[Rfam]
Nucleotides: 089
Stems, first nucleotide, its partner, number of pairs: 001088003005084001007082001010025004027059005065081005
Number, partner (000 for none) and nucleotide at each position: 001088c002087c003086u004000c005084c006000a007082g008000u009000a010025g011024c012023u013022c014000a015000g016000c017000u018000g019000g020000u021000a022013g023012a024011g025010c026000g027059g028058a029057g030056g031055a032000c033000u034000g035000u036000a037000g038000g039000c040000u041000c042000c043000c044000u045000u046000g047000c048000a049000c050000g051000g052000u053000c054000a055031u056030c057029c058028u059027u060000a061000g062000g063000u064000c065081g066080c067079u068078g069077g070000u071000u072000c073000a074000a075000c076000u077069c078068c079067a080066g081065c082007u083000c084005g085000a086003a087002g088001g089000a
Rfam assigns this 89-nucleotide RNA from Brachypodius melanocephalos to the family "tRNA".
A search with the family's covariance model found it, with a score of 46 bits.
Taxonomically the source falls in Brachypodius (Eukaryota, Sauropsida, Passeriformes, Pycnonotidae).
The family's consensus secondary structure is taken from published work.